The record is a 186-nucleotide RNA from Heterocephalus glaber, which matches "Small nucleolar RNA SNORA81" in Rfam.

RNA sequence: CCAUUUUUGUUGAAGCUCUUUCUAAAAUUGAAGAAACUAGUAUCAUGUCUUAGUAUUUGUAAUAUGGCCAGCAGAGUAAACACAAGAAUAAAAAACAACUAAACAACUGUACCAGGUAGAAGAAAAACUGGGGUGAACCUUUUUAAGUCCCCAGUCCUUUGUUCUAAGAUUUUUGGUACAGUAAUA
Numbered sequence: 001c002c003a004u005u006u007u008u009g010u011u012g013a014a015g016c017u018c019u020u021u022c023u024a025a026a027a028u029u030g031a032a033g034a035a036a037c038u039a040g041u042a043u044c045a046u047g048u049c050u051u052a053g054u055a056u057u058u059g060u061a062a063u064a065u066g067g068c069c070a071g072c073a074g075a076g077u078a079a080a081c082a083c084a085a086g087a088a089u090a091a092a093a094a095a096c097a098a099c100u101a102a103a104c105a106a107c108u109g110u111a112c113c114a115g116g117u118a119g120a121a122g123a124a125a126a127a128c129u130g131g132g133g134u135g136a137a138c139c140u141u142u143u144u145a146a147g148u149c150c151c152c153a154g155u156c157c158u159u160u161g162u163u164c165u166a167a168g169a170u171u172u173u174u175g176g177u178a179c180a181g182u183a184a185u186a
Stems, first nucleotide, its partner, number of pairs: 018076002020073001022071002029064002033057002036054005042048002108180009130155001135150001137148001
Pairs were carried over by alignment from the consensus structure, which was predicted with WAR.